[Rfam]
Nucleotides: 168
Stems, first nucleotide, its partner, number of pairs: 001168008013042001016041003022032003026139001028137002043131004048127002051122008135160001140157006
Number, partner (000 for none) and nucleotide at each position: 001168c002167u003166c004165u005164u006163a007162u008161c009000c010000a011000g012000a013042g014000c015000a016041g017040g018039c019000u020000g021000a022032g023031g024030g025000a026139c027000u028137g029136g030024c031023c032022c033000g034000a035000u036000g037000a038000c039018g040017c041016c042013c043131g044130g045129c046128a047000a048127c049126c050000g051122g052121a053120u054119u055118c056117g057116c058115a059000a060000a061000a062000g063000u064000g065000c066000g067000g068000g069000g070000u071000u072000c073000c074000a075000a076000u077000g078000g079000a080000a081000c082000c083000c084000g085000u086000a087000u088000c089000a090000c091000c092000g093000a094000g095000a096000a097000a098000g099000a100000a101000a102000c103000a104000u105000c106000u107000u108000c109000c110000c111000u112000u113000c114000a115058u116057g117056c118055g119054g120053a121052u122051c123000a124000a125000u126049g127048g128046u129045g130044c131043u132000a133000a134000c135160u136029c137028c138000u139026g140157c141156a142155g143154a144153a145152u146000g147000u148000u149000g150000c151000a152145a153144u154143u155142c156141u157140g158000a159000g160135a161008g162007a163006u164005g165004a166003g167002a168001g